[Rfam]
IS605-orfB-I RNA: a 219-nucleotide RNA sequence.
RNA sequence: AUUCAAUACAGAUGUAUUCAACGCAAGACAGUUGGGCAUCUCCCUGUAGGAUGAAGUUUAAUAGAAGUCUUAACAACAAUUCUCAUUGUGUGGCUACUCUGGUCGAAAUGAGAUGCGUUAGGAUGGAAGAGGUUAACCGUAAGACCUUGAGUUGCAAAACUCUAAAAUUGACCUAGAGAUAUGGAUUUCAGAAUUUUCUCAUUUUCUAGUUACGAUAAG
Numbered sequence: 001a002u003u004c005a006a007u008a009c010a011g012a013u014g015u016a017u018u019c020a021a022c023g024c025a026a027g028a029c030a031g032u033u034g035g036g037c038a039u040c041u042c043c044c045u046g047u048a049g050g051a052u053g054a055a056g057u058u059u060a061a062u063a064g065a066a067g068u069c070u071u072a073a074c075a076a077c078a079a080u081u082c083u084c085a086u087u088g089u090g091u092g093g094c095u096a097c098u099c100u101g102g103u104c105g106a107a108a109u110g111a112g113a114u115g116c117g118u119u120a121g122g123a124u125g126g127a128a129g130a131g132g133u134u135a136a137c138c139g140u141a142a143g144a145c146c147u148u149g150a151g152u153u154g155c156a157a158a159a160c161u162c163u164a165a166a167a168u169u170g171a172c173c174u175a176g177a178g179a180u181a182u183g184g185a186u187u188u189c190a191g192a193a194u195u196u197u198c199u200c201a202u203u204u205u206c207u208a209g210u211u212a213c214g215a216u217a218a219g
Base pairs, nucleotide, nucleotide: 001052002051003050004049006047007046008045010041011040012039013038014037015036018035019034020033021032022031023029067124068123069122070121071120072119073118074117081113082112083111084110085109086108087107092104093103095101130147131146132145133144134143136216138214139213140212141211142168149162150161151160152159153158173209174208175207176206177205178204179203183199184198
Description
The family's consensus secondary structure is taken from published work.